RNA sequence: AAUUUGAAUCAACUGCUAUAUUUGAAAAAUGAUAUAGAGGAAACUCCACGCUUGCACAUUCUGAGAUGAAUGUAGUGUUUGUGCUAAAGGAAAAAAUAACUUUAGGUACCAAUUUAUUGGUAACGACUUAGGCAUAAUCUAAGGGUACUUGUACCUAUGAUGAGCUUUUUAAAGUGCCACAGAGACGAUUAACUAGAAAUAGUGAAAUGGAACGGGUAAACUCCACAAGCAAGAAACUCAAAUUUUGGUAGAGGAGCUUAAAGGUGAGGAAUUGAACAAGCCUUUGGGAUCGCUAAAUGCGAUAGAUAGAUAGUUGAUGCACGUAAGUGUUACAAAACGUGGGUUAUGAUA
Numbered sequence: 001a002a003u004u005u006g007a008a009u010c011a012a013c014u015g016c017u018a019u020a021u022u023u024g025a026a027a028a029a030u031g032a033u034a035u036a037g038a039g040g041a042a043a044c045u046c047c048a049c050g051c052u053u054g055c056a057c058a059u060u061c062u063g064a065g066a067u068g069a070a071u072g073u074a075g076u077g078u079u080u081g082u083g084c085u086a087a088a089g090g091a092a093a094a095a096a097u098a099a100c101u102u103u104a105g106g107u108a109c110c111a112a113u114u115u116a117u118u119g120g121u122a123a124c125g126a127c128u129u130a131g132g133c134a135u136a137a138u139c140u141a142a143g144g145g146u147a148c149u150u151g152u153a154c155c156u157a158u159g160a161u162g163a164g165c166u167u168u169u170u171a172a173a174g175u176g177c178c179a180c181a182g183a184g185a186c187g188a189u190u191a192a193c194u195a196g197a198a199a200u201a202g203u204g205a206a207a208u209g210g211a212a213c214g215g216g217u218a219a220a221c222u223c224c225a226c227a228a229g230c231a232a233g234a235a236a237c238u239c240a241a242a243u244u245u246u247g248g249u250a251g252a253g254g255a256g257c258u259u260a261a262a263g264g265u266g267a268g269g270a271a272u273u274g275a276a277c278a279a280g281c282c283u284u285u286g287g288g289a290u291c292g293c294u295a296a297a298u299g300c301g302a303u304a305g306a307u308a309g310a311u312a313g314u315u316g317a318u319g320c321a322c323g324u325a326a327g328u329g330u331u332a333c334a335a336a337a338c339g340u341g342g343g344u345u346a347u348g349a350u351a
Stems, first nucleotide, its partner, number of pairs: 004351001007347001008318007016037006042345003046342005051233005056073006079228005084105006106124001107122006125223002130166002137161003143156005174221002176217003189206002192203004237253003257288007289303005320329003
Shown here is a 351-nucleotide RNA sequence from Spiroplasma diminutum, a member of the family "Bacterial RNase P class B". Rfam links the family to the GO terms ribonuclease P activity, dimeric ribonuclease P complex and tRNA processing. It is annotated as a ribozyme. On this family, see Frank and Pace, Annu Rev Biochem 1998: "Ribonuclease P: unity and diversity in a tRNA processing ribozyme". The match comes from Rfam's covariance-model search (252 bits).